[Rfam]
RNA sequence: AUUAUUUGAAGAGGUUGCAAUCAACAAUAGUAAAUUAAGUUAGGAAACGAAAUUCCGUAGCUUGAUUGAAAGGGGCGAUUGCCGAAGUUAGUUAAGGUUUCGUACUUAAUUAGCUGGGCUAAUAUUUAAUAGAUAUUAGACUCUCGUAGCAAAAAUGUCGGCUGCGAGGCGCUAGCGACAAUU
Numbered sequence: 001a002u003u004a005u006u007u008g009a010a011g012a013g014g015u016u017g018c019a020a021u022c023a024a025c026a027a028u029a030g031u032a033a034a035u036u037a038a039g040u041u042a043g044g045a046a047a048c049g050a051a052a053u054u055c056c057g058u059a060g061c062u063u064g065a066u067u068g069a070a071a072g073g074g075g076c077g078a079u080u081g082c083c084g085a086a087g088u089u090a091g092u093u094a095a096g097g098u099u100u101c102g103u104a105c106u107u108a109a110u111u112a113g114c115u116g117g118g119c120u121a122a123u124a125u126u127u128a129a130u131a132g133a134u135a136u137u138a139g140a141c142u143c144u145c146g147u148a149g150c151a152a153a154a155a156u157g158u159c160g161g162c163u164g165c166g167a168g169g170c171g172c173u174a175g176c177g178a179c180a181a182u183u
Stems, first nucleotide, its partner, number of pairs: 006178003010173002017082006025074001033067008086115011116142002119139008144167007
Rfam assigns this 183-nucleotide sequence from Periweissella fabalis to the family "Lysine riboswitch aptamer". The match comes from Rfam's covariance-model search (99 bits). Pairs were carried over by alignment from the consensus structure, which is taken from published work. On this family, see Sudarsan et al., Genes Dev 2003: "An mRNA structure in bacteria that controls gene expression by binding lysine".